Shown here is a 74-nucleotide RNA sequence from Weissella oryzae, a member of the family "tRNA". The family's consensus secondary structure is taken from published work. A search with the family's covariance model found it, with a score of 69 bits. Its family is annotated with triplet codon-amino acid adaptor activity in the Gene Ontology.
[Rfam]
RNA sequence: AGGAUUGUAGCUCAGCUGGUUAGAGCGCACCGCUGAUAACGGUGAGGUCGGAGGUUCGAGUCCUCUCAGUCCUA
Numbered sequence: 001a002g003g004a005u006u007g008u009a010g011c012u013c014a015g016c017u018g019g020u021u022a023g024a025g026c027g028c029a030c031c032g033c034u035g036a037u038a039a040c041g042g043u044g045a046g047g048u049c050g051g052a053g054g055u056u057c058g059a060g061u062c063c064u065c066u067c068a069g070u071c072c073u074a
Stems, first nucleotide, its partner, number of pairs: 001073007010026004028044005050066005